[Rfam]
RNA: Bacterial RNase P class A
RNA sequence: CGGGUCGGUCGGGCGAUCGCGUCGUCCACUCCGGUGGGCGCCGAGGAAAGUCCGGACUCCGAAGGGCAGCGUGGUGGGUAACGCCCACCCGGGGCAACCCGCGGGACAGUGCCACAGAGAACAGACCGCCAGCGGCCUGAGCGAAUUCCGGUUCGCCUCAGGUGCGGGUGAGGGUGAAACGGUGGUGUAAGAGACCACCAGCUCCGCAGGUGACUGCGGAGGCUCGGUAAACCCCACGUGGAGCAAGGCCAAGAAGGACGGCGGGCAACCACCGUCCGCGCGAGCGUUCGAGGGCUGCCCGCCCGAGCUCGCGGGUAGGCCGCUGGAGGCUGCCGGCAACGGCAGCCCUAGAUAGAUGAUCGCCAGCACAGAAUCCGGCUUACAGACCGGCCCGUUCC
Numbered sequence: 001c002g003g004g005u006c007g008g009u010c011g012g013g014c015g016a017u018c019g020c021g022u023c024g025u026c027c028a029c030u031c032c033g034g035u036g037g038g039c040g041c042c043g044a045g046g047a048a049a050g051u052c053c054g055g056a057c058u059c060c061g062a063a064g065g066g067c068a069g070c071g072u073g074g075u076g077g078g079u080a081a082c083g084c085c086c087a088c089c090c091g092g093g094g095c096a097a098c099c100c101g102c103g104g105g106a107c108a109g110u111g112c113c114a115c116a117g118a119g120a121a122c123a124g125a126c127c128g129c130c131a132g133c134g135g136c137c138u139g140a141g142c143g144a145a146u147u148c149c150g151g152u153u154c155g156c157c158u159c160a161g162g163u164g165c166g167g168g169u170g171a172g173g174g175u176g177a178a179a180c181g182g183u184g185g186u187g188u189a190a191g192a193g194a195c196c197a198c199c200a201g202c203u204c205c206g207c208a209g210g211u212g213a214c215u216g217c218g219g220a221g222g223c224u225c226g227g228u229a230a231a232c233c234c235c236a237c238g239u240g241g242a243g244c245a246a247g248g249c250c251a252a253g254a255a256g257g258a259c260g261g262c263g264g265g266c267a268a269c270c271a272c273c274g275u276c277c278g279c280g281c282g283a284g285c286g287u288u289c290g291a292g293g294g295c296u297g298c299c300c301g302c303c304c305g306a307g308c309u310c311g312c313g314g315g316u317a318g319g320c321c322g323c324u325g326g327a328g329g330c331u332g333c334c335g336g337c338a339a340c341g342g343c344a345g346c347c348c349u350a351g352a353u354a355g356a357u358g359a360u361c362g363c364c365a366g367c368a369c370a371g372a373a374u375c376c377g378g379c380u381u382a383c384a385g386a387c388c389g390g391c392c393c394g395u396u397c398c
Stems, first nucleotide, its partner, number of pairs: 001394010011383001012364007020043002023040006048381003052378005057243004064300004069239005074088005089103001090101004104234002109232002111228003126173002128169003132165003136161001181199006201223001202221008247321004292304004328347008